Shown here is a 167-nucleotide RNA sequence from Triticum aestivum, a member of the family "MIR2118 microRNA precursor family". For this family Rfam cites "Clusters and superclusters of phased small RNAs in the developing inflorescence of rice" (Johnson et al., Genome Res, 2009).
[Rfam]
RNA sequence: GAGAGUAAGGAAAAGGAAGCCAUGAGAUCUUAGAGCGGUGGGCAUGGGAACAUGGAGGAAAGCCUAGAUUUCCUGGCCUCUUAAUUUAGGGGCAAAGAUUGUUUUGUGUUUUCCUGAUGCCUCUCAUGCCAAUUGUUCUUAGGUAUUCCUUUCUUUUCCUAUUUGCU
Numbered sequence: 001g002a003g004a005g006u007a008a009g010g011a012a013a014a015g016g017a018a019g020c021c022a023u024g025a026g027a028u029c030u031u032a033g034a035g036c037g038g039u040g041g042g043c044a045u046g047g048g049a050a051c052a053u054g055g056a057g058g059a060a061a062g063c064c065u066a067g068a069u070u071u072c073c074u075g076g077c078c079u080c081u082u083a084a085u086u087u088a089g090g091g092g093c094a095a096a097g098a099u100u101g102u103u104u105u106g107u108g109u110u111u112u113c114c115u116g117a118u119g120c121c122u123c124u125c126a127u128g129c130c131a132a133u134u135g136u137u138c139u140u141a142g143g144u145a146u147u148c149c150u151u152u153c154u155u156u157u158c159c160u161a162u163u164u165g166c167u
Stems, first nucleotide, its partner, number of pairs: 009158005015152003024148003028143003032139006039132001041130009051119003055115001057114007
Rfam links the family to the GO terms RISC complex and miRNA-mediated post-transcriptional gene silencing.
Pairs were carried over by alignment from the consensus structure, which was predicted with RNAalifold.